[Rfam]
RNA sequence: GGGUCAGCUUAGCCUAGCGGUUCCUUCAUUUGACUAACAAUUCUUCUGUCACCAGUUCAAGUCCCGUGGGCGCUGCCUGGCCUUUUA
Number, nucleotide and partner (000 for none) at each position: 001g000002g082003g081004u080005c079006a078007g077008c000009u000010u000011a000012g071013c070014c069015u068016a000017g067018c066019g065020g064021u000022u000023c000024c000025u061026u060027c000028a000029u000030u000031u000032g000033a000034c000035u000036a000037a000038c000039a000040a000041u000042u000043c000044u000045u000046c000047u000048g000049u000050c000051a000052c000053c000054a000055g000056u000057u000058c000059a000060a026061g025062u000063c000064c020065c019066g018067u017068g015069g014070g013071c012072g000073c000074u000075g000076c000077c007078u006079g005080g004081c003082c002083u000084u000085u000086u000087a000
RNA: Vault RNA
Organism: Phrynocephalus forsythii